[Rfam]
RNA sequence: GGUCUUGUGGCGCAAUUGGUUAGCGCGUCGUACUAAUAUUCCACUGGAAUAUACAGUAAUGCGAAGGUUCUGAGUUCAAUCCUCAGCAGGACCA
Numbered sequence: 001g002g003u004c005u006u007g008u009g010g011c012g013c014a015a016u017u018g019g020u021u022a023g024c025g026c027g028u029c030g031u032a033c034u035a036a037u038a039u040u041c042c043a044c045u046g047g048a049a050u051a052u053a054c055a056g057u058a059a060u061g062c063g064a065a066g067g068u069u070c071u072g073a074g075u076u077c078a079a080u081c082c083u084c085a086g087c088a089g090g091a092c093c094a
Base pairs, nucleotide, nucleotide: 001093002092003091004090005089006088007087010026011025012024013023028064029063030062031061032060070086071085072084073083074082
Overview:
Rfam assigns this 94-nucleotide sequence from Pleurostoma richardsiae to the family "tRNA". The family's RNA type in Rfam is transfer RNA. A search with the family's covariance model found it, with a score of 53 bits.